Source information:
Rfam assigns this 101-nucleotide RNA sequence from Moraxella cuniculi to the family "Vibrio RNA AS9". A search with the family's covariance model found it, with a score of 51 bits. Identified by direct cloning an parallel sequencing experiments with 5S/tRNA depletion. Confirmed by Northern blot. The family's consensus secondary structure was predicted with RNAfold.
RNA sequence: CUGACAACGAGCCUCGGUUAAGGUUAGGCAUACCAAACCGCGUGCGUGAGUUAUCAUAAAAUUAAUCGCCUCUGGGGUGAUGUGGCUGGCUGCCAUGAUCA
Dot-bracket structure: ..((.(((.(((((......)))))......((...((...))..))..))).)).......(.(((((..(((..(.....)...)))..))...))).)